[Rfam]
RNA sequence: AAAUGCCAUCAGGUAUCUAAUGCUCAGUCAAUCUGAUGGCUUAGCAUCUCGUAAGUGUGGCAGAGAUGUAGAAAGCAGGUCUUGCGACACAGAUAGUUCUAUUCUUUGAGCUUCCUGUUACUAAAUCCCUGCUUACAUUU
Numbered sequence: 001a002a003a004u005g006c007c008a009u010c011a012g013g014u015a016u017c018u019a020a021u022g023c024u025c026a027g028u029c030a031a032u033c034u035g036a037u038g039g040c041u042u043a044g045c046a047u048c049u050c051g052u053a054a055g056u057g058u059g060g061c062a063g064a065g066a067u068g069u070a071g072a073a074a075g076c077a078g079g080u081c082u083u084g085c086g087a088c089a090c091a092g093a094u095a096g097u098u099c100u101a102u103u104c105u106u107u108g109a110g111c112u113u114c115c116u117g118u119u120a121c122u123a124a125a126u127c128c129c130u131g132c133u134u135a136c137a138u139u140u
Stems, first nucleotide, its partner, number of pairs: 004062006020047005026041005074133005089118004095112004
Dot-bracket structure: ...((((((..........(((((.(((((......))))).))))).........))))))...........(((((..........((((..((((..........))))..))))..........))))).......
The record is a 140-nucleotide sequence from Zingiber officinale, which matches "Small nucleolar RNA F1/F2/snoR5a" in Rfam. The base pairs follow the family's consensus structure, which was predicted with PFOLD. Taxonomically the source falls in Zingiber (Eukaryota, Streptophyta, Mesangiospermae, Zingiberales).